Overview: Shown here is a 110-nucleotide sequence from Halalkalibacter suaedae, a member of the family "Glycine riboswitch aptamer". Its family is annotated with glycine biosynthetic process in the Gene Ontology. The organism belongs to Halalkalibacter, within Bacteria.
RNA sequence: AUGAGGAUAAGGGGAGAGACUGUGGCAGUUGCUGCAGCGCCGAAGGAGCAAGCAACGAUUUCUGUAAAUCAGUUGUGAAUCUCUCAGGUAAAGAAGACUCUUAUUUGACG
Numbered sequence: 001a002u003g004a005g006g007a008u009a010a011g012g013g014g015a016g017a018g019a020c021u022g023u024g025g026c027a028g029u030u031g032c033u034g035c036a037g038c039g040c041c042g043a044a045g046g047a048g049c050a051a052g053c054a055a056c057g058a059u060u061u062c063u064g065u066a067a068a069u070c071a072g073u074u075g076u077g078a079a080u081c082u083c084u085c086a087g088g089u090a091a092a093g094a095a096g097a098c099u100c101u102u103a104u105u106u107g108a109c110g
Base pairs, nucleotide, nucleotide: 006105007104008103009102010101011100012099013098020037021036022035023034039089040088041087042085043084046083047082048081052076053075054074055073056072